[Rfam]
RNA sequence: UAAACAAUAUUCCUCCGAGUUCAUUUGCCUAAAGUUCGCCAUGGCGGAUGAACCGAUAGGGUGUGCCGGGAAACUGGCAUGCCUCCCAUUGUGGAAAGGAGAGCUGAUAUGAUGACC
Numbered sequence: 001u002a003a004a005c006a007a008u009a010u011u012c013c014u015c016c017g018a019g020u021u022c023a024u025u026u027g028c029c030u031a032a033a034g035u036u037c038g039c040c041a042u043g044g045c046g047g048a049u050g051a052a053c054c055g056a057u058a059g060g061g062u063g064u065g066c067c068g069g070g071a072a073a074c075u076g077g078c079a080u081g082c083c084u085c086c087c088a089u090u091g092u093g094g095a096a097a098g099g100a101g102a103g104c105u106g107a108u109a110u111g112a113u114g115a116c117c
Base pairs, nucleotide, nucleotide: 004110006108011103013101014100015099016098019053020052021051022050023049024048025047026046027045028044029043034039059084060083061082062081063080064079065078066077067076068075069074085094086093
Dot-bracket structure: ...(.(....(.((((..(((((((((((....(....)...))))))))))).....(((((((((((....)))))))))))((......))...)))).)....).).......
About this RNA
Molybdenum/Tungsten riboswitch aptamer (Moco RNA motif): a 117-nucleotide sequence from Desulfocucumis palustris. The base pairs follow the family's consensus structure, which is taken from published work. The match comes from Rfam's covariance-model search (74 bits). The organism belongs to Desulfocucumis, within Bacteria. The family has 160 seed sequences and 1,248 matches in Rfam 15.1.